Rfam assigns this 63-nucleotide RNA to the family "Cyano-1 RNA". By type it is a small RNA. It is one of the family's seed sequences.
RNA sequence: CAAUGUGUGAGGAAAACGCCUCACGGGGUGGAAACAAGGUCACACUCCCGAGGGACGUUUUGG
Numbered sequence: 001c002a003a004u005g006u007g008u009g010a011g012g013a014a015a016a017c018g019c020c021u022c023a024c025g026g027g028g029u030g031g032a033a034a035c036a037a038g039g040u041c042a043c044a045c046u047c048c049c050g051a052g053g054g055a056c057g058u059u060u061u062g063g
Stems, first nucleotide, its partner, number of pairs: 015059004020054001021051002025049003028045003